[Rfam]
RNA sequence: GGUUGUUGUCCUUCAUUCCACCGGAGUCUGUCUCAUACCUAACCAGAUUUCAGUGGAGUGAAGCACAGGAGACA
Numbered sequence: 001g002g003u004u005g006u007u008g009u010c011c012u013u014c015a016u017u018c019c020a021c022c023g024g025a026g027u028c029u030g031u032c033u034c035a036u037a038c039c040u041a042a043c044c045a046g047a048u049u050u051c052a053g054u055g056g057a058g059u060g061a062a063g064c065a066c067a068g069g070a071g072a073c074a
Stems, first nucleotide, its partner, number of pairs: 011063006019055003023051004028046003
The family of this 74-nucleotide sequence from Alectura lathami is "mir-205 microRNA precursor family". Rfam links the family to the GO terms miRNA-mediated post-transcriptional gene silencing and RISC complex. It scores 88 bits against the family's covariance model. The literature on the family includes a 2003 paper in Science by Lim et al., "Vertebrate microRNA genes". Pairs were carried over by alignment from the consensus structure, which was predicted with RNAalifold.